[Rfam]
This 58-nucleotide sequence from Euphorbia tirucalli belongs to the Rfam family "Plastid-ccsA-ndhD-1 3UTR RNA". Plastid-ccsA-ndhD-1 is a non-coding RNA (ncRNA) recognised in plastids. It was found in the three prime untranslated region (3UTR) of ccsA and ndhD genes, its 3UTR location suggests a role in transcript maturation. On this family, see Zandueta-Criado and Bock, Nucleic Acids Res 2004: "Surprising features of plastid ndhD transcripts: addition of non-encoded nucleotides and polysome association of mRNAs with an unedited start codon". The family has 488 seed sequences and 1,322 matches in Rfam 15.1. Pairs were carried over by alignment from the consensus structure, which was predicted with LocARNA.

RNA sequence: AAGCUGUUGAGAACUUUUUGAAUCACCAUACUAGUUGAUUCAAAAAGUUCUCACAAAU
Dot-bracket structure: .......((((((((((((((((((..........)))))))))))))))))).....